Small nucleolar RNA SNORA47: a 130-nucleotide RNA from Salvator merianae. Rfam links the family to the GO terms RNA processing and nucleolus. The family's RNA type in Rfam is H/ACA-box small nucleolar RNA. The match comes from Rfam's covariance-model search (72 bits).
RNA sequence: UGGAGGACUGAGAAAAUAAGGCAGUUAUAUGUACUGCAUUUAUUGGUUAUACCCUCCAAAAUCAAAACUGUGCAAAAAGCAAGUCAUGUUCCUCUGAUCUGUGUUGGAACACUAUUGCUGGUUGCAUAUA
Numbered sequence: 001u002g003g004a005g006g007a008c009u010g011a012g013a014a015a016a017u018a019a020g021g022c023a024g025u026u027a028u029a030u031g032u033a034c035u036g037c038a039u040u041u042a043u044u045g046g047u048u049a050u051a052c053c054c055u056c057c058a059a060a061a062u063c064a065a066a067a068c069u070g071u072g073c074a075a076a077a078a079g080c081a082a083g084u085c086a087u088g089u090u091c092c093u094c095u096g097a098u099c100u101g102u103g104u105u106g107g108a109a110c111a112c113u114a115u116u117g118c119u120g121g122u123u124g125c126a127u128a129u130a
Base pairs, nucleotide, nucleotide: 002057003056004055005054006053015044016043017042018041019039021037022036023035024034025033078122080120083118084117086115087114088113095108098107099106